Overview
A member of the RNA family "Small nucleolar RNA Z173" from Leersia perrieri, 108 nucleotides long. A search with the family's covariance model found it, with a score of 120 bits.
RNA sequence: UCAGCGCCGAUGAUGAGUUUACAAAAUGUACUAGGUUGAAUCCUGAUCGAAGAACCUCUCUGGUUCUGAACGAUGACCACCCAUGUUCCUCUCGAUUUGAGGCGCUGC
Numbered sequence: 001u002c003a004g005c006g007c008c009g010a011u012g013a014u015g016a017g018u019u020u021a022c023a024a025a026a027u028g029u030a031c032u033a034g035g036u037u038g039a040a041u042c043c044u045g046a047u048c049g050a051a052g053a054a055c056c057u058c059u060c061u062g063g064u065u066c067u068g069a070a071c072g073a074u075g076a077c078c079a080c081c082c083a084u085g086u087u088c089c090u091c092u093c094g095a096u097u098u099g100a101g102g103c104g105c106u107g108c
Stems, first nucleotide, its partner, number of pairs: 002107007